[Rfam]
RNA: mir-21 microRNA precursor family
Organism: Hippoglossus hippoglossus
RNA sequence: CGUCAGCUAGCUUAUCAGACUGGUGUUGGCUGUUGUAUUGCCAUGGCAACACUAGUUUGUAAGCUGGCUGAAG
Numbered sequence: 001c002g003u004c005a006g007c008u009a010g011c012u013u014a015u016c017a018g019a020c021u022g023g024u025g026u027u028g029g030c031u032g033u034u035g036u037a038u039u040g041c042c043a044u045g046g047c048a049a050c051a052c053u054a055g056u057u058u059g060u061a062a063g064c065u066g067g068c069u070g071a072a073g
Base pairs, nucleotide, nucleotide: 008066009065010064011063012062013061014060015059018057019056020055021054022053024051025050026049027048028047030045